[Rfam]
RNA sequence: UUUGUUUGCUGUUUAUUAAAAACACUUCUGCAUGGUGAAUCCCCCUGUGCGGAGGGGCGAUCAGCAACCAGGUAUAUGGGAUAAUCGCGGAUUCAGGUGCUGAUACUGAAUUCACCGGGAGGCACCCGGCACCAUGCAAGAAAAAGAAUGUGCAUGCAAACAUGCCCCUCUCCGGAGGGGCUUUUUUAUGGGU
Numbered sequence: 001u002u003u004g005u006u007u008g009c010u011g012u013u014u015a016u017u018a019a020a021a022a023c024a025c026u027u028c029u030g031c032a033u034g035g036u037g038a039a040u041c042c043c044c045c046u047g048u049g050c051g052g053a054g055g056g057g058c059g060a061u062c063a064g065c066a067a068c069c070a071g072g073u074a075u076a077u078g079g080g081a082u083a084a085u086c087g088c089g090g091a092u093u094c095a096g097g098u099g100c101u102g103a104u105a106c107u108g109a110a111u112u113c114a115c116c117g118g119g120a121g122g123c124a125c126c127c128g129g130c131a132c133c134a135u136g137c138a139a140g141a142a143a144a145a146g147a148a149u150g151u152g153c154a155u156g157c158a159a160a161c162a163u164g165c166c167c168c169u170c171u172c173c174g175g176a177g178g179g180g181c182u183u184u185u186u187u188a189u190g191g192g193u
Stems, first nucleotide, its partner, number of pairs: 030137008042057005078088001080086001089113004094108003115129005152193002155190001162183001164181006
RNA: Gammaproteobacterial sRNA STnc100
Organism: Escherichia coli